[Rfam]
RNA: SAH (S-adenosyl-L-homocysteine) riboswitch aptamer
Organism: Marilutibacter maris
RNA sequence: CCCGCCGAGGGGCGCUGCGACCGUCCCCAAGCGCAUUGCCGCGCGAUGCGGGCACGGCCAGGCUCGGCGAGGCAGCCCAUGCAACAACGGCGCCCGGUCUGA
Numbered sequence: 001c002c003c004g005c006c007g008a009g010g011g012g013c014g015c016u017g018c019g020a021c022c023g024u025c026c027c028c029a030a031g032c033g034c035a036u037u038g039c040c041g042c043g044c045g046a047u048g049c050g051g052g053c054a055c056g057g058c059c060a061g062g063c064u065c066g067g068c069g070a071g072g073c074a075g076c077c078c079a080u081g082c083a084a085c086a087a088c089g090g091c092g093c094c095c096g097g098u099c100u101g102a
Base pairs, nucleotide, nucleotide: 003069004068005067006066007065008064021057022056023055024054026052027051028050